A member of the RNA family "RNase MRP" from Eremothecium gossypii, 280 nucleotides long.
[Rfam]
RNA sequence: AGGCAUGUCCGAAGAAUCGUCACAAUCGAAGCUUACCAAGGCCGGCAGCUAGCUGCCGGUCCGCCAUGCUUUGGGGAAAGUCUCCGACCAGGCUGUAUGCGGAAACGCAGCGAGAUUUAAAAACUUAUUUUUACAUCCACUCGCUAGGGCUGCCUGGCAGCCCUUUCUCCUGGGGCGCAAGCUCCAGUGACUUUCGGUAGCGGGGCCCUGUGGGCGCCGAGCGAUAGUUAUGACGAUUGCGCACCGCGUAACGCAAUGGAGCUUAUUCUCGGGCCAUGCC
Numbered sequence: 001a002g003g004c005a006u007g008u009c010c011g012a013a014g015a016a017u018c019g020u021c022a023c024a025a026u027c028g029a030a031g032c033u034u035a036c037c038a039a040g041g042c043c044g045g046c047a048g049c050u051a052g053c054u055g056c057c058g059g060u061c062c063g064c065c066a067u068g069c070u071u072u073g074g075g076g077a078a079a080g081u082c083u084c085c086g087a088c089c090a091g092g093c094u095g096u097a098u099g100c101g102g103a104a105a106c107g108c109a110g111c112g113a114g115a116u117u118u119a120a121a122a123a124c125u126u127a128u129u130u131u132u133a134c135a136u137c138c139a140c141u142c143g144c145u146a147g148g149g150c151u152g153c154c155u156g157g158c159a160g161c162c163c164u165u166u167c168u169c170c171u172g173g174g175g176c177g178c179a180a181g182c183u184c185c186a187g188u189g190a191c192u193u194u195c196g197g198u199a200g201c202g203g204g205g206c207c208c209u210g211u212g213g214g215c216g217c218c219g220a221g222c223g224a225u226a227g228u229u230a231u232g233a234c235g236a237u238u239g240c241g242c243a244c245c246g247c248g249u250a251a252c253g254c255a256a257u258g259g260a261g262c263u264u265a266u267u268c269u270c271g272g273g274c275c276a277u278g279c280c
Stems, first nucleotide, its partner, number of pairs: 002280005008273005016237006026074007043058006078264003082261004098109004143158006160208001166204003170200002176196002181188002239249004
The source organism's lineage runs through Eukaryota, Opisthokonta, Fungi, Ascomycota and Eremothecium gossypii. By type it is a ribozyme.